The family of this 100-nucleotide sequence from Porphyromonas sp. HMSC065F10 is "TPP riboswitch aptamer (THI element)".
RNA sequence: GCCUUCGCCUAGGGGUGCCUGUCCGCAAGGGCAGGCUGAGAGCAGACCCUCCGAACCUGUCCGGAUCAUUCCGACGUAGGAAAGUGCGUGAUACCGACCG
Numbered sequence: 001g002c003c004u005u006c007g008c009c010u011a012g013g014g015g016u017g018c019c020u021g022u023c024c025g026c027a028a029g030g031g032c033a034g035g036c037u038g039a040g041a042g043c044a045g046a047c048c049c050u051c052c053g054a055a056c057c058u059g060u061c062c063g064g065a066u067c068a069u070u071c072c073g074a075c076g077u078a079g080g081a082a083a084g085u086g087c088g089u090g091a092u093a094c095c096g097a098c099c100g
Stems, first nucleotide, its partner, number of pairs: 006088003010084001011050004016044001017036007056080004062073003
NCBI's taxonomy places the organism under Bacteria, Pseudomonadati, Bacteroidia, Bacteroidales, Porphyromonas. Rfam describes the family as follows. Vitamin B(1) in its active form thiamin pyrophosphate (TPP) is an essential coenzyme that is synthesised by coupling of pyrimidine and thiazole moieties in bacteria.